[Rfam]
RNA sequence: ACCAGAGAAAAGUAAACAGCUCAUAUAAUUUCGCUGUGAUGGCGCGAAAGUUUCUACCGGGCCGCCCAAGGCUCUGCUAUGAGUGUCUUUCCGCAGGGG
Numbered sequence: 001a002c003c004a005g006a007g008a009a010a011a012g013u014a015a016a017c018a019g020c021u022c023a024u025a026u027a028a029u030u031u032c033g034c035u036g037u038g039a040u041g042g043c044g045c046g047a048a049a050g051u052u053u054c055u056a057c058c059g060g061g062c063c064g065c066c067c068a069a070g071g072c073u074c075u076g077c078u079a080u081g082a083g084u085g086u087c088u089u090u091c092c093g094c095a096g097g098g099g
Base pairs, nucleotide, nucleotide: 019084020083021082022081023080024079025078029049030048031047032046033045034044059074060073061072062071063070